About this RNA
Rfam assigns this 86-nucleotide sequence from Massilia sp. Root335 to the family "Glycine riboswitch aptamer". Rfam describes the family as follows. This family represents the bacterial glycine riboswitch.
RNA sequence: CACUCUUGAUCGGGAGAGCGCAGCACAGGCUGCCGCCGAAGGGGCAUCACCCAAAAACUCUCAGGCAACCGGACCGGUCGGGGGCU
Numbered sequence: 001c002a003c004u005c006u007u008g009a010u011c012g013g014g015a016g017a018g019c020g021c022a023g024c025a026c027a028g029g030c031u032g033c034c035g036c037c038g039a040a041g042g043g044g045c046a047u048c049a050c051c052c053a054a055a056a057a058c059u060c061u062c063a064g065g066c067a068a069c070c071g072g073a074c075c076g077g078u079c080g081g082g083g084g085c086u
Stems, first nucleotide, its partner, number of pairs: 006081008020033004035066003038062002042060003
Notes:
The source organism's lineage runs through Bacteria, Pseudomonadati, Betaproteobacteria, Burkholderiales and Massilia.